[Rfam]
RNA: MIR5070 microRNA precursor family
RNA sequence: UAGGGUACCCUCCAACCCUCUUUAGUUCAAUCAAAUGAACUAAAAGUUUCAAAAACUGAUGUGAUUUUGGAAAUUUAGUUCAUUUGGUUGAACUAAAGAGGAUUGGAAGGUACCCUA
Numbered sequence: 001u002a003g004g005g006u007a008c009c010c011u012c013c014a015a016c017c018c019u020c021u022u023u024a025g026u027u028c029a030a031u032c033a034a035a036u037g038a039a040c041u042a043a044a045a046g047u048u049u050c051a052a053a054a055a056c057u058g059a060u061g062u063g064a065u066u067u068u069g070g071a072a073a074u075u076u077a078g079u080u081c082a083u084u085u086g087g088u089u090g091a092a093c094u095a096a097a098g099a100g101g102a103u104u105g106g107a108a109g110g111u112a113c114c115c116u117a
Base pairs, nucleotide, nucleotide: 002116003115004114005113006112007111008110009109011107012106013105014104015103017101018100019099020098021097022096023095024094025093026092027091028090029089030088031087032086033085034084035083036082037081038080039079040078041077042076043075